Description
A member of the RNA family "GP20-b RNA" from Lachnospiraceae bacterium 1_4_56FAA, 64 nucleotides long. It is one of the family's seed sequences. The family's consensus secondary structure is taken from published work.

RNA sequence: GGUCAGCUGAUCAGACCUAAAAUAGUCAAUUCGUGGCGGAUGGUUACACGCCUAAAAUAACCUA
Numbered sequence: 001g002g003u004c005a006g007c008u009g010a011u012c013a014g015a016c017c018u019a020a021a022a023u024a025g026u027c028a029a030u031u032c033g034u035g036g037c038g039g040a041u042g043g044u045u046a047c048a049c050g051c052c053u054a055a056a057a058u059a060a061c062c063u064a
Base pairs, nucleotide, nucleotide: 001017002016003015004014009027010026011025013023035052036051037050038049
Dot-bracket structure: ((((....[[[.[)))).....].]]].......((((..........))))............